[Rfam]
RNA: RAGATH-18 RNA
RNA sequence: CCCUCGGAGUGUUAAAGCAAACGAAAGUAGUUUAUUCCUUGUGAAGAACGAAAUCGGACACGUUGAACAGGGAA
Number, nucleotide and partner (000 for none) at each position: 001c072002c071003c070004u069005c000006g000007g000008a000009g061010u060011g059012u058013u057014a000015a000016a000017g000018c000019a000020a000021a000022c056023g055024a054025a000026a000027g000028u000029a000030g049031u048032u047033u000034a000035u045036u044037c000038c000039u000040u000041g000042u000043g000044a036045a035046g000047a032048a031049c030050g000051a000052a000053a000054u024055c023056g022057g013058a012059c011060a010061c009062g000063u000064u000065g000066a000067a000068c000069a004070g003071g002072g001073a000074a000